[Rfam]
RNA sequence: UCAGAGGGUCGGACGGCCGCCGCGCCAGGGUUCGAAAGAACGGCGGGGAGGAAAGUCCGGGCUCCACGGAUAGACGGUGCCGGGUAACGCCCGGCGGGGGCGACCCCAGGGAAAGUGCCACAGAGAGCAGACCGCCCGAUGGCCUUGCGCCGGACGGCAAGGGUGAAAGGGUGCGGCAAGAGCGCACCGCGCGACCGGCAACGGAAGCGGCACGGCAAACCCCACCGGGAGCAAAACCGAAUAGGGGCGGCGCAUGGCUUAUCCGGCCGGACCGCCCGGGUAGGUUGCUGGAGGCGGCGCGCAAGCGUCGUCCUAGAGGAAUGGUCGUCGCUGCCUUUGCGGGCAGUACAGAACCCGGCUUACAGACCCUCUGACCGU
Numbered sequence: 001u002c003a004g005a006g007g008g009u010c011g012g013a014c015g016g017c018c019g020c021c022g023c024g025c026c027a028g029g030g031u032u033c034g035a036a037a038g039a040a041c042g043g044c045g046g047g048g049a050g051g052a053a054a055g056u057c058c059g060g061g062c063u064c065c066a067c068g069g070a071u072a073g074a075c076g077g078u079g080c081c082g083g084g085u086a087a088c089g090c091c092c093g094g095c096g097g098g099g100g101c102g103a104c105c106c107c108a109g110g111g112a113a114a115g116u117g118c119c120a121c122a123g124a125g126a127g128c129a130g131a132c133c134g135c136c137c138g139a140u141g142g143c144c145u146u147g148c149g150c151c152g153g154a155c156g157g158c159a160a161g162g163g164u165g166a167a168a169g170g171g172u173g174c175g176g177c178a179a180g181a182g183c184g185c186a187c188c189g190c191g192c193g194a195c196c197g198g199c200a201a202c203g204g205a206a207g208c209g210g211c212a213c214g215g216c217a218a219a220c221c222c223c224a225c226c227g228g229g230a231g232c233a234a235a236a237c238c239g240a241a242u243a244g245g246g247g248c249g250g251c252g253c254a255u256g257g258c259u260u261a262u263c264c265g266g267c268c269g270g271a272c273c274g275c276c277c278g279g280g281u282a283g284g285u286u287g288c289u290g291g292a293g294g295c296g297g298c299g300c301g302c303a304a305g306c307g308u309c310g311u312c313c314u315a316g317a318g319g320a321a322u323g324g325u326c327g328u329c330g331c332u333g334c335c336u337u338u339g340c341g342g343g344c345a346g347u348a349c350a351g352a353a354c355c356c357g358g359c360u361u362a363c364a365g366a367c368c369c370u371c372u373g374a375c376c377g378u
Base pairs, nucleotide, nucleotide: 001374002373003372004371005370006369007368008367009366010365011363012329013328014327015326016325017324018323020048021047023045024044025043026042053361054360055359057358058357059356060355061354062231063230064229065228072262075227076226077225078224079223080094081093082092083091084090095109096107097106098105099104110222111221115220116219117216118215119214132162133161134158135157136156140152141151142150170188171187172186173185174184175183189211190209191208192207195204196203197202235286236285237284238283245277246276247275248274249273250272255269256268257267258266259265293312294311295310296309297308298307299306300305
Description:
A member of the RNA family "Bacterial RNase P class A" from Sphingosinicella soli, 378 nucleotides long. By type it is a ribozyme. Lineage of the source: Bacteria > Pseudomonadati > Pseudomonadota > Sphingomonadales > Sphingosinicella.